[Rfam]
RNA sequence: UGCCCCCUGUGGCGUUUGCCAGCGGGACCGUUAAAUGCCUUGUCCCUACAUUUUGACCACGGGGUAGCUGAUCUGAGUGCCGGUGUGCAUGUUCGCUUUCAGCGAAAAGCCUGAAGCCUCGUAAGCCAUCCCACCUGAACCUUUGGUUCAAGGUCACCGGGCCGCAGCGGCUUUACGGGGGGCUU
Dot-bracket structure: .(((((((((((.((.(((.................(((.((..((...............(((..(((.(.(.(((...(.....((...(((((.....)))))..)).....).))))).)))...)))............))..)).)))............))))).)))))))))))..
RNA: 6S / SsrS RNA